[Rfam]
RNA sequence: GGUCUUGUGCGCGAACACCGCGCACACUAUCUAGAGGGCGUCCGGGCAACCGGACUAUGGACAUAAACGCGCUCGUAAUAAGCGGAUCGGACCCGGGGGCGGUACCCGGCGACUCCACCAAACAACCCUUCGUUGGGGGCAAAUGGGGUCGAAACAGGAUCGACGAACGUGUAAAGGGGUUUUUGCUUUGUCCCGGUGAGGUACCACCGUUAUCGGUCCGAAAAGUACAGUUGCCAACGACAACCGUGCUCCGGCGAUGGCUCUGGCUGCGUAAGCAGUCCGGGUAUCCCGAACCUAAGUCCUAAGGGGUAGCACCUUUAGGCGGGGUCCGCAGGCACCUGGCAACAGAAGCCUGCACC
Numbered sequence: 001g002g003u004c005u006u007g008u009g010c011g012c013g014a015a016c017a018c019c020g021c022g023c024a025c026a027c028u029a030u031c032u033a034g035a036g037g038g039c040g041u042c043c044g045g046g047c048a049a050c051c052g053g054a055c056u057a058u059g060g061a062c063a064u065a066a067a068c069g070c071g072c073u074c075g076u077a078a079u080a081a082g083c084g085g086a087u088c089g090g091a092c093c094c095g096g097g098g099g100c101g102g103u104a105c106c107c108g109g110c111g112a113c114u115c116c117a118c119c120a121a122a123c124a125a126c127c128c129u130u131c132g133u134u135g136g137g138g139g140c141a142a143a144u145g146g147g148g149u150c151g152a153a154a155c156a157g158g159a160u161c162g163a164c165g166a167a168c169g170u171g172u173a174a175a176g177g178g179g180u181u182u183u184u185g186c187u188u189u190g191u192c193c194c195g196g197u198g199a200g201g202u203a204c205c206a207c208c209g210u211u212a213u214c215g216g217u218c219c220g221a222a223a224a225g226u227a228c229a230g231u232u233g234c235c236a237a238c239g240a241c242a243a244c245c246g247u248g249c250u251c252c253g254g255c256g257a258u259g260g261c262u263c264u265g266g267c268u269g270c271g272u273a274a275g276c277a278g279u280c281c282g283g284g285u286a287u288c289c290c291g292a293a294c295c296u297a298a299g300u301c302c303u304a305a306g307g308g309g310u311a312g313c314a315c316c317u318u319u320a321g322g323c324g325g326g327g328u329c330c331g332c333a334g335g336c337a338c339c340u341g342g343c344a345a346c347a348g349a350a351g352c353c354u355g356c357a358c359c
Stems, first nucleotide, its partner, number of pairs: 040055005059193005069186002071180004083169002087166003093109005110151007194209004200219002203217003325340004331356006

This 359-nucleotide sequence from Rubellimicrobium rubrum belongs to the Rfam family "Alphaproteobacteria transfer-messenger RNA". By type it is a non-coding RNA gene. Rfam's curators write: Bacterial tmRNA, also known as 10Sa RNA or SsrA, is named for its dual tRNA and mRNA-like properties. Its role is to liberate the mRNA from a stalled ribosome. To accomplish this part of the tmRNA is used as a reading frame that ends in a translation stop signal.